The record is a 356-nucleotide RNA from Sphingomicrobium sediminis, which matches "Bacterial RNase P class A" in Rfam. The base pairs follow the family's consensus structure, which is taken from published work. The organism belongs to Sphingomicrobium, within Bacteria. Ribonuclease P (RNase P) is a ubiquitous endoribonuclease, found in archaea, bacteria and eukarya as well as chloroplasts and mitochondria. The family's RNA type in Rfam is ribozyme.
[Rfam]
RNA sequence: UCAGGGGAUCGGGCGGCCGCGGCUUUUGCCGAGGAAAGUCCGGGCUCCAUGGAAAGACGGUGCCGGGUAACGCCCGGCGGCCCUUUUGGGUCAGGGACAGUGCCACAGAAAGCGAUCCGCCGAUCUUCGGGUCGGUAAGGGCGAACGGGUGCGGCAAGAGCGCACCGCGCGACCGGCAACGGAAGCGGCACGGCAAACCCCACCGGGAGCAAGACCGAAUAGGGGCGGCAUAUGGGCUCUUUCCGGCCCGUCGCCCGGGUUGGUUGCUAGAGAUGCGGGGCGACCCGCAUCCCAGAUGAAUGGUCGCCCAUCCCUUAUAGGGUGGACAGAACCCGGCUUACAGAUCCCCUGGCCCU
Numbered sequence: 001u002c003a004g005g006g007g008a009u010c011g012g013g014c015g016g017c018c019g020c021g022g023c024u025u026u027u028g029c030c031g032a033g034g035a036a037a038g039u040c041c042g043g044g045c046u047c048c049a050u051g052g053a054a055a056g057a058c059g060g061u062g063c064c065g066g067g068u069a070a071c072g073c074c075c076g077g078c079g080g081c082c083c084u085u086u087u088g089g090g091u092c093a094g095g096g097a098c099a100g101u102g103c104c105a106c107a108g109a110a111a112g113c114g115a116u117c118c119g120c121c122g123a124u125c126u127u128c129g130g131g132u133c134g135g136u137a138a139g140g141g142c143g144a145a146c147g148g149g150u151g152c153g154g155c156a157a158g159a160g161c162g163c164a165c166c167g168c169g170c171g172a173c174c175g176g177c178a179a180c181g182g183a184a185g186c187g188g189c190a191c192g193g194c195a196a197a198c199c200c201c202a203c204c205g206g207g208a209g210c211a212a213g214a215c216c217g218a219a220u221a222g223g224g225g226c227g228g229c230a231u232a233u234g235g236g237c238u239c240u241u242u243c244c245g246g247c248c249c250g251u252c253g254c255c256c257g258g259g260u261u262g263g264u265u266g267c268u269a270g271a272g273a274u275g276c277g278g279g280g281c282g283a284c285c286c287g288c289a290u291c292c293c294a295g296a297u298g299a300a301u302g303g304u305c306g307c308c309c310a311u312c313c314c315u316u317a318u319a320g321g322g323u324g325g326a327c328a329g330a331a332c333c334c335g336g337c338u339u340a341c342a343g344a345u346c347c348c349c350u351g352g353c354c355c356u
Stems, first nucleotide, its partner, number of pairs: 001352010011341001012308007020031004036339003040336005045209004054242003058205005063077005078094001079092004095200002100198002102194003117140002119136007148166006167189001168187003173182003213265004223256006234249005272291008